Shown here is a 77-nucleotide sequence from Leptolyngbya sp. ES-bin-22, a member of the family "CyVA-1 RNA".
About the family: Cyanobacteria, Acidobacteria (1 example), Verrucomicrobia (1 example).
A search with the family's covariance model found it, with a score of 58 bits.

RNA sequence: CCACUGUAUGAGUGUUGUGCCGCUGUGGCUCAGAACUUCGUCCCCAAGGAGAGCGACCGCAAGGGUGAAGGCAGUGU
Numbered sequence: 001c002c003a004c005u006g007u008a009u010g011a012g013u014g015u016u017g018u019g020c021c022g023c024u025g026u027g028g029c030u031c032a033g034a035a036c037u038u039c040g041u042c043c044c045c046a047a048g049g050a051g052a053g054c055g056a057c058c059g060c061a062a063g064g065g066u067g068a069a070g071g072c073a074g075u076g077u
Stems, first nucleotide, its partner, number of pairs: 002076005009032004037069007
NCBI's taxonomy places the organism under Bacteria, Bacillati, Cyanophyceae, Leptolyngbyales, Leptolyngbya.